[Rfam]
RNA: Small nucleolar RNA Z43
RNA sequence: GGACAGUGACGAUUUUCAUCAAAGGUCUCGUUCGUCGUAAUAGCCCUAAUUGGGCCUUGCCGACCAAUCUGAUAUAUUCUGAGUCC
Number, nucleotide and partner (000 for none) at each position: 001g086002g085003a084004c083005a000006g000007u000008g000009a000010c000011g000012a000013u000014u000015u000016u000017c000018a000019u000020c000021a000022a000023a000024g000025g000026u000027c000028u000029c000030g000031u000032u000033c000034g000035u000036c000037g000038u000039a000040a000041u000042a000043g000044c000045c000046c000047u000048a058049a057050u000051u000052g000053g000054g000055c000056c000057u049058u048059g000060c000061c000062g000063a000064c000065c000066a000067a000068u000069c000070u000071g000072a000073u000074a000075u000076a000077u000078u000079c000080u000081g000082a000083g004084u003085c002086c001